Notes: HNH endonuclease-associated RNA and ORF (HEARO) RNA: a 217-nucleotide RNA from Coleofasciculus chthonoplastes. It is annotated as a non-coding RNA gene. Rfam 15.1 lists 952 matches to the family in 249 species. It is one of the family's seed sequences.
RNA sequence: GUCAACGACCCGUCGCUAAAAGCGAGGGCUCCUUAUAGCCCAAGUUGACCAGCCUAAGUGCUACGCGCACUACGUUAACGGCAAGUGUUAAAAAUCCUACCUUGGGAUGCGUGCCAGUUCCAAGCUCUAGAACCGAGUGGUUAAACAGGUCUAAAGGGUUAAGAAGCGUGCUGCUUGGAAAGUACCGACCGUUAACAUUGGCGAGGACCCACUUUAC
Numbered sequence: 001g002u003c004a005a006c007g008a009c010c011c012g013u014c015g016c017u018a019a020a021a022g023c024g025a026g027g028g029c030u031c032c033u034u035a036u037a038g039c040c041c042a043a044g045u046u047g048a049c050c051a052g053c054c055u056a057a058g059u060g061c062u063a064c065g066c067g068c069a070c071u072a073c074g075u076u077a078a079c080g081g082c083a084a085g086u087g088u089u090a091a092a093a094a095u096c097c098u099a100c101c102u103u104g105g106g107a108u109g110c111g112u113g114c115c116a117g118u119u120c121c122a123a124g125c126u127c128u129a130g131a132a133c134c135g136a137g138u139g140g141u142u143a144a145a146c147a148g149g150u151c152u153a154a155a156g157g158g159u160u161a162a163g164a165a166g167c168g169u170g171c172u173g174c175u176u177g178g179a180a181a182g183u184a185c186c187g188a189c190c191g192u193u194a195a196c197a198u199u200g201g202c203g204a205g206g207a208c209c210c211a212c213u214u215u216a217c
Base pairs, nucleotide, nucleotide: 001049002048003047004046005045006044010028011027013025014024015023016022052202053201054200056198057071058070059069060068061067074196075195076194077193078192079191087189088188089187095131096130101124102123103122104121105120106119107118108117109213111212112211113210114206115205133178134177135176136175137174138173139172140171141170145169146168150164151163152161153160